About this RNA
This 109-nucleotide RNA from Elaeis guineensis belongs to the Rfam family "Small nucleolar RNA Z152/R70/R12/". The family's consensus secondary structure was predicted with PFOLD. Rfam links the family to the GO terms RNA processing and nucleolus.
[Rfam]
RNA sequence: GAAGCGAUGAUGAGUUUAGAAUAGAGGUUUGGGCAGUGGCGAGACGCAUCAGUCAUCUCGCCGUGAGCCUUUCCCCAUUAUUAAACGACUUCUCCUUCCACUGAGCUCC
Numbered sequence: 001g002a003a004g005c006g007a008u009g010a011u012g013a014g015u016u017u018a019g020a021a022u023a024g025a026g027g028u029u030u031g032g033g034c035a036g037u038g039g040c041g042a043g044a045c046g047c048a049u050c051a052g053u054c055a056u057c058u059c060g061c062c063g064u065g066a067g068c069c070u071u072u073c074c075c076c077a078u079u080a081u082u083a084a085a086c087g088a089c090u091u092c093u094c095c096u097u098c099c100a101c102u103g104a105g106c107u108c109c
Base pairs, nucleotide, nucleotide: 001109003107004106005105